Annotation: The record is a 171-nucleotide RNA sequence from Triticum urartu, which matches "MIR2118 microRNA precursor family" in Rfam. The family's consensus secondary structure was predicted with RNAalifold. Rfam links the family to the GO terms RISC complex and miRNA-mediated post-transcriptional gene silencing.
[Rfam]
RNA sequence: GCCGGGAAGAGGAAGAGUGAGCUCAAGAGCACUGGGAAUGGGAACAUGGAGGAAAGCCCUGCUUGUUUGUUUGCACCUGCAGUGUUGGAGGUGCAAAUAUUGGGCAUGGAUCCUUUCCUGAUGCCUCCCAUUCCUACCGUUCUUGUGCACUUCUUCCUCUUCCUUUUGGCU
Numbered sequence: 001g002c003c004g005g006g007a008a009g010a011g012g013a014a015g016a017g018u019g020a021g022c023u024c025a026a027g028a029g030c031a032c033u034g035g036g037a038a039u040g041g042g043a044a045c046a047u048g049g050a051g052g053a054a055a056g057c058c059c060u061g062c063u064u065g066u067u068u069g070u071u072u073g074c075a076c077c078u079g080c081a082g083u084g085u086u087g088g089a090g091g092u093g094c095a096a097a098u099a100u101u102g103g104g105c106a107u108g109g110a111u112c113c114u115u116u117c118c119u120g121a122u123g124c125c126u127c128c129c130a131u132u133c134c135u136a137c138c139g140u141u142c143u144u145g146u147g148c149a150c151u152u153c154u155u156c157c158u159c160u161u162c163c164u165u166u167u168g169g170c171u
Stems, first nucleotide, its partner, number of pairs: 009162005015156003019152003022147001024145007033136011045123003049119001051118006